[Rfam]
RNA sequence: AAAAUAAGUGCUAUCCCAAAUAGCCGACAUCUAUUUUGCUUUCCGAGUAGUGCCUCUUUUGAGGCACUUUUUUUUAUUCU
Numbered sequence: 001a002a003a004a005u006a007a008g009u010g011c012u013a014u015c016c017c018a019a020a021u022a023g024c025c026g027a028c029a030u031c032u033a034u035u036u037u038g039c040u041u042u043c044c045g046a047g048u049a050g051u052g053c054c055u056c057u058u059u060u061g062a063g064g065c066a067c068u069u070u071u072u073u074u075u076a077u078u079c080u
Stems, first nucleotide, its partner, number of pairs: 001074004006069003022040003026036002029034001051066006